[Rfam]
RNA sequence: GGGUAAGGAAGUUCUGCUAAGGCCGCGACGUCCUGUCGCAACGCAGAACUGACCUGCCUCCUGCAGG
Dot-bracket structure: ..........(((((((.......(((((.....)))))...)))))))...(((((.....)))))
Numbered sequence: 001g002g003g004u005a006a007g008g009a010a011g012u013u014c015u016g017c018u019a020a021g022g023c024c025g026c027g028a029c030g031u032c033c034u035g036u037c038g039c040a041a042c043g044c045a046g047a048a049c050u051g052a053c054c055u056g057c058c059u060c061c062u063g064c065a066g067g
Stems, first nucleotide, its partner, number of pairs: 011049007025039005053067005